[Rfam]
RNA sequence: AUUAUUGGACAAACUUUGUUCAGUAUUGGUGCUUGUUUUCUGCAUCACUGGGUAAAGUUUGUCCCAUAAU
Numbered sequence: 001a002u003u004a005u006u007g008g009a010c011a012a013a014c015u016u017u018g019u020u021c022a023g024u025a026u027u028g029g030u031g032c033u034u035g036u037u038u039u040c041u042g043c044a045u046c047a048c049u050g051g052g053u054a055a056a057g058u059u060u061g062u063c064c065c066a067u068a069a070u
Stems, first nucleotide, its partner, number of pairs: 005066001007064008017054003021050004
RNA: mir-3 microRNA precursor family
Organism: Bactrocera dorsalis